Makes More Granules Regulator RNA (mmgR): a 77-nucleotide RNA sequence from Sphingomonas parapaucimobilis. Lineage of the source: Bacteria > Pseudomonadati > Sphingomonadales > Sphingomonadaceae > Sphingomonas parapaucimobilis. About the family: SuhB later renamed mmgR (makes more granules regulator) was a putative non-coding RNA found multiple times in the Agrobacterium tumefaciens genome and related alpha-proteobacteria. Clan: suhB sRNA clan. The base pairs follow the family's consensus structure.
RNA sequence: AGAGCGGGCCUUUCAGGCAUCCUCUCCUAAAAACUUUCAUGGGCUGGUCGCAAGACCGGCCCUUUUUUUGUCUUGCU
Number, nucleotide and partner (000 for none) at each position: 001a000002g000003a000004g000005c000006g000007g000008g018009c017010c016011u015012u000013u000014c000015a011016g010017g009018c008019a000020u000021c000022c000023u000024c000025u000026c000027c000028u000029a000030a000031a000032a000033a000034c000035u000036u000037u000038c000039a000040u000041g062042g061043g060044c059045u058046g057047g056048u055049c054050g000051c000052a000053a000054g049055a048056c047057c046058g045059g044060c043061c042062c041063u000064u000065u000066u000067u000068u000069u000070g000071u000072c000073u000074u000075g000076c000077u000